Description: A member of the RNA family "Small nucleolar RNA SNORD30" from Ictidomys tridecemlineatus, 68 nucleotides long. By type it is a C/D-box small nucleolar RNA. NCBI's taxonomy places the organism under Eukaryota, Dipnotetrapodomorpha, Rodentia, Xerinae, Ictidomys.

RNA sequence: AUAUAUGAUGACUUAUGGAAUCUCGUUCGGCUGAUGUUUUGCUGUUGAGACUCGGAAAUCUGAUUUCC
Numbered sequence: 001a002u003a004u005a006u007g008a009u010g011a012c013u014u015a016u017g018g019a020a021u022c023u024c025g026u027u028c029g030g031c032u033g034a035u036g037u038u039u040u041g042c043u044g045u046u047g048a049g050a051c052u053c054g055g056a057a058a059u060c061u062g063a064u065u066u067c068c
Stems, first nucleotide, its partner, number of pairs: 021050005028044004